Shown here is a 77-nucleotide RNA sequence from Diachasma alloeum, a member of the family "mir-124 microRNA precursor family".
RNA sequence: CGCUCCUUGCGUUCACAGCGGGCUUCCAUGUGCCAACAAUUUAAAAUUCAUAAGGCACGCGGUGAAUGCUAAGAGCG
Numbered sequence: 001c002g003c004u005c006c007u008u009g010c011g012u013u014c015a016c017a018g019c020g021g022g023c024u025u026c027c028a029u030g031u032g033c034c035a036a037c038a039a040u041u042u043a044a045a046a047u048u049c050a051u052a053a054g055g056c057a058c059g060c061g062g063u064g065a066a067u068g069c070u071a072a073g074a075g076c077g
Stems, first nucleotide, its partner, number of pairs: 003075003009069008018060003023055003029052004